[Rfam]
RNA sequence: GCCGGUGAUGGGGAUGGGGUUCCCCCGAUAACCGCCCGCAAGGGGCUGAUGACUCCUACCGCGUA
Numbered sequence: 001g002c003c004g005g006u007g008a009u010g011g012g013g014a015u016g017g018g019g020u021u022c023c024c025c026c027g028a029u030a031a032c033c034g035c036c037c038g039c040a041a042g043g044g045g046c047u048g049a050u051g052a053c054u055c056c057u058a059c060c061g062c063g064u065a
Stems, first nucleotide, its partner, number of pairs: 010026004016056006034046004
RNA: Fluoride riboswitch aptamer (crcB RNA motif)
Organism: Pseudolabrys taiwanensis